[Rfam]
Record summary: This 79-nucleotide RNA sequence from Apis mellifera belongs to the Rfam family "bantam microRNA precursor family". It is one of the family's seed sequences. The base pairs follow the family's consensus structure, which was predicted with RNAalifold. Rfam links the family to the GO terms RISC complex and miRNA-mediated post-transcriptional gene silencing. Its Rfam clan is "mir-81 clan". On this family, see Weaver et al., Genome Biol 2007: "Computational and transcriptional evidence for microRNAs in the honey bee genome".
RNA sequence: UCGAAAACGAAACUGGUUUUCACAAUGAUUUGACAGAUAGAUUCGAUUCUGAGAUCAUUGUGAAAGCUGAUUUUGUUGA
Numbered sequence: 001u002c003g004a005a006a007a008c009g010a011a012a013c014u015g016g017u018u019u020u021c022a023c024a025a026u027g028a029u030u031u032g033a034c035a036g037a038u039a040g041a042u043u044c045g046a047u048u049c050u051g052a053g054a055u056c057a058u059u060g061u062g063a064a065a066g067c068u069g070a071u072u073u074u075g076u077u078g079a
Base pairs, nucleotide, nucleotide: 007076008075009074010073011072012071014069015068016067017066018065019064020063021062022061023060026057027056028055029054030053031052